RNA sequence: UACUGCUGUCUUUUUGGGAGUGGGACAGAAAUGAUAUUUUCGCAAAAUUUAUUUCGUCGUCCCACCCCAACUUGCACACUAUUGUAAGCUGACUUUUCGCCAGCUUCUGUGUUGGGGCCCCGCCAACUUGCAUUGUCUGUAGAAAUUGAGGAGCUAAUUUCUCUGUGUCGGGGCUCCACCCCAACUUGCACACUAUUGUAAGCUGACUUUCCGCCAGCCUCUGUGUUGGGGCCCCGCCAACUUGCACACUAUUGUAAGCUGACUUUCCACCAGCCUCU
Numbered sequence: 001u002a003c004u005g006c007u008g009u010c011u012u013u014u015u016g017g018g019a020g021u022g023g024g025a026c027a028g029a030a031a032u033g034a035u036a037u038u039u040u041c042g043c044a045a046a047a048u049u050u051a052u053u054u055c056g057u058c059g060u061c062c063c064a065c066c067c068c069a070a071c072u073u074g075c076a077c078a079c080u081a082u083u084g085u086a087a088g089c090u091g092a093c094u095u096u097u098c099g100c101c102a103g104c105u106u107c108u109g110u111g112u113u114g115g116g117g118c119c120c121c122g123c124c125a126a127c128u129u130g131c132a133u134u135g136u137c138u139g140u141a142g143a144a145a146u147u148g149a150g151g152a153g154c155u156a157a158u159u160u161c162u163c164u165g166u167g168u169c170g171g172g173g174c175u176c177c178a179c180c181c182c183a184a185c186u187u188g189c190a191c192a193c194u195a196u197u198g199u200a201a202g203c204u205g206a207c208u209u210u211c212c213g214c215c216a217g218c219c220u221c222u223g224u225g226u227u228g229g230g231g232c233c234c235c236g237c238c239a240a241c242u243u244g245c246a247c248a249c250u251a252u253u254g255u256a257a258g259c260u261g262a263c264u265u266u267c268c269a270c271c272a273g274c275c276u277c278u
Stems, first nucleotide, its partner, number of pairs: 002014001005011001016068003020065007028055007036048005070140002074136003080130001086106006093099001111127005118122001141162008164248005170242002179230002182228004198224003201220001204216002207213001254278001256276001258274004
The family of this 278-nucleotide sequence from Staphylococcus aureus is "Staphylococcus sRNA 35 (srn_0335)". Lineage of the source: Bacteria > Bacillota > Bacilli > Caryophanales > Staphylococcus aureus. The family has 3 seed sequences and 67 matches in Rfam 15.1. Pairs were carried over by alignment from the consensus structure, which was predicted with RNAfold.